[Rfam]
RNA sequence: CUCUUAUCGCGAGCUGGCUGAGGGACUGGCCCUAUGAUGCCCGGCAACCGGCGCUUUCCAGGCAGGGAGGCGUAACGGUGCUAAAUCCUGCGGAAAUGUUUUUCCGAGAGAUGAGAG
Numbered sequence: 001c002u003c004u005u006a007u008c009g010c011g012a013g014c015u016g017g018c019u020g021a022g023g024g025a026c027u028g029g030c031c032c033u034a035u036g037a038u039g040c041c042c043g044g045c046a047a048c049c050g051g052c053g054c055u056u057u058c059c060a061g062g063c064a065g066g067g068a069g070g071c072g073u074a075a076c077g078g079u080g081c082u083a084a085a086u087c088c089u090g091c092g093g094a095a096a097u098g099u100u101u102u103u104c105c106g107a108g109a110g111a112u113g114a115g116a117g
Stems, first nucleotide, its partner, number of pairs: 001117008013042001016041003022032003026090001028088002043082004048078002051073008086109001091106006
Shown here is a 117-nucleotide RNA sequence from Brevibacillus sp. WF146, a member of the family "SAM riboswitch aptamer (S box leader)". Rfam 15.1 lists 9,625 matches to the family in 4,158 species. Rfam describes the family as follows. The SAM riboswitch is found upstream of a number of genes which code for proteins involved in methionine or cysteine biosynthesis in Gram-positive bacteria.